Notes
Shown here is a 108-nucleotide RNA from Morus notabilis, a member of the family "MIR162_1 microRNA precursor family". It scores 107 bits against the family's covariance model. Gene Ontology terms of the family: RISC complex and miRNA-mediated post-transcriptional gene silencing. The family's consensus secondary structure was predicted with RNAalifold.
[Rfam]
RNA sequence: GGUGAAGUCACUGGAUGCAGCGGUUCAUCGAUCCCUUCCUGAGAUUUGUUGUGAAAAAUCCACAAAACAUGAAUCGGUCGAUAAACCUCUGCAUCCAGCGCUCACUCA
Numbered sequence: 001g002g003u004g005a006a007g008u009c010a011c012u013g014g015a016u017g018c019a020g021c022g023g024u025u026c027a028u029c030g031a032u033c034c035c036u037u038c039c040u041g042a043g044a045u046u047u048g049u050u051g052u053g054a055a056a057a058a059u060c061c062a063c064a065a066a067a068c069a070u071g072a073a074u075c076g077g078u079c080g081a082u083a084a085a086c087c088u089c090u091g092c093a094u095c096c097a098g099c100g101c102u103c104a105c106u107c108a
Stems, first nucleotide, its partner, number of pairs: 013096003018091003022087004027082007036073003
Dot-bracket structure: ............(((..(((.((((.(((((((..(((................................)))..))))))).)))).)))..)))............